[Rfam]
Background: chrB-b RNA: a 56-nucleotide RNA sequence. The sequence is in the family's curated seed alignment.
RNA sequence: CCGGGUCAACGCAGGCACCCCGGUAUGGCCAGGACGAGUCCCGUCCCAAGCGCUGC
Numbered sequence: 001c002c003g004g005g006u007c008a009a010c011g012c013a014g015g016c017a018c019c020c021c022g023g024u025a026u027g028g029c030c031a032g033g034a035c036g037a038g039u040c041c042c043g044u045c046c047c048a049a050g051c052g053c054u055g056c
Base pairs, nucleotide, nucleotide: 001023002022003020004019005018006017011056012055013054014053032046033045034044035043036042
The family's RNA type in Rfam is cis-regulatory element.